[Rfam]
RNA sequence: UCUUGUUUGCACACUUUGUUUCCGUUAUUUCCGCAUGCUCCUUAGAAAUUUUUGUGCAUCGAUAUAAAAUCCUUUCAUAGGAGCAUACGCAAACAAUGGAAACAAGGAAUGCAAAUAAA
Dot-bracket structure: ..(((((((((..(((((((((((((.(((.((.((((((((..((((.(((((((......)))))))...))))..)))))))).)).))).)))))))))))))..))))))))).
Numbered sequence: 001u002c003u004u005g006u007u008u009g010c011a012c013a014c015u016u017u018g019u020u021u022c023c024g025u026u027a028u029u030u031c032c033g034c035a036u037g038c039u040c041c042u043u044a045g046a047a048a049u050u051u052u053u054g055u056g057c058a059u060c061g062a063u064a065u066a067a068a069a070u071c072c073u074u075u076c077a078u079a080g081g082a083g084c085a086u087a088c089g090c091a092a093a094c095a096a097u098g099g100a101a102a103c104a105a106g107g108a109a110u111g112c113a114a115a116u117a118a119a
Stems, first nucleotide, its partner, number of pairs: 003118009014107013028093003032089002035086008045076004050069007
Shown here is a 119-nucleotide RNA sequence from Arabidopsis lyrata, a member of the family "MIR4239 microRNA precursor family". Taxonomically the source falls in Arabidopsis (Eukaryota, Viridiplantae, Streptophytina, Magnoliopsida). The family's consensus secondary structure was predicted with RNAalifold.